Record summary
A member of the RNA family "SAM riboswitch aptamer (S box leader)" from Leptotrichia sp. oral taxon 215, 105 nucleotides long. It scores 59 bits against the family's covariance model.
RNA sequence: AACUUAUCCAGAGAGAUACGAGGGACGGGCCCGUUAUUAGUAUCCGGCAACCUGUAUGAAAAUAUAAGGUGCCAAUUCCCGGCAUAAAAAAUGCGAAGAUAAGAA
Numbered sequence: 001a002a003c004u005u006a007u008c009c010a011g012a013g014a015g016a017u018a019c020g021a022g023g024g025a026c027g028g029g030c031c032c033g034u035u036a037u038u039a040g041u042a043u044c045c046g047g048c049a050a051c052c053u054g055u056a057u058g059a060a061a062a063u064a065u066a067a068g069g070u071g072c073c074a075a076u077u078c079c080c081g082g083c084a085u086a087a088a089a090a091a092u093g094c095g096a097a098g099a100u101a102a103g104a105a
Stems, first nucleotide, its partner, number of pairs: 003103006013045001015044004022032003026081004046073004051069002053066004077097001082094004